A member of the RNA family "Small nucleolar RNA Z199" from Miscanthus lutarioriparius, 84 nucleotides long. The family's RNA type in Rfam is C/D-box small nucleolar RNA. From the family's description: snoZ199 is a C/D box small nucleolar RNA, which acts as a methylation guide RNA for sites on 18S and 25S rRNA. Rice snoZ199 is reported to be homologous to Arabidopsis snoR13. For this family Rfam cites "The high diversity of snoRNAs in plants: identification and comparative study of 120 snoRNA genes from Oryza sativa" (Chen et al., Nucleic Acids Res, 2003). Rfam links the family to the GO terms RNA processing and nucleolus.
[Rfam]
RNA sequence: UGAUCAAGUGAUGAACAAUUAACUGCUCCAACGUCAUGAUUGGAGUUAUUCUCCUACGAUUUCCAAGUUUUAAGUCUGAUGAUU
Numbered sequence: 001u002g003a004u005c006a007a008g009u010g011a012u013g014a015a016c017a018a019u020u021a022a023c024u025g026c027u028c029c030a031a032c033g034u035c036a037u038g039a040u041u042g043g044a045g046u047u048a049u050u051c052u053c054c055u056a057c058g059a060u061u062u063c064c065a066a067g068u069u070u071u072a073a074g075u076c077u078g079a080u081g082a083u084u
Stems, first nucleotide, its partner, number of pairs: 002083001004082003042054004